Background:
The record is a 99-nucleotide sequence from Betta splendens, which matches "Small nucleolar RNA SNORD16" in Rfam. Its Rfam clan is "SNORD16 clan". Its family is annotated with nucleolus and RNA processing in the Gene Ontology. A reference for the family is Fragapane et al. (1993), "A novel small nucleolar RNA (U16) is encoded inside a ribosomal protein intron and originates by processing of the pre-mRNA", EMBO J. A search with the family's covariance model found it, with a score of 67 bits.
Nucleotides: 099
Stems, first nucleotide, its partner, number of pairs: 001099003021082004030072003034069001039065002041059005
Number, partner (000 for none) and nucleotide at each position: 001099u002098g003097c004000c005000g006000u007000g008000a009000u010000g011000g012000u013000g014000u015000a016000a017000u018000u019000u020000g021082c022081g023080u024079c025000u026000g027000a028000c029000u030072c031071u032070g033000u034069g035000a036000c037000c038000a039065g040064c041059g042058a043057c044056c045055a046000a047000g048000c049000g050000c051000c052000u053000a054000a055045u056044g057043g058042u059041c060000a061000u062000a063000a064040g065039c066000u067000g068000g069034c070032c071031a072030g073000a074000u075000g076000g077000c078000u079024g080023a081022c082021g083000a084000a085000c086000a087000c088000g089000g090000a091000g092000u093000c094000u095000g096000a097003g098002c099001a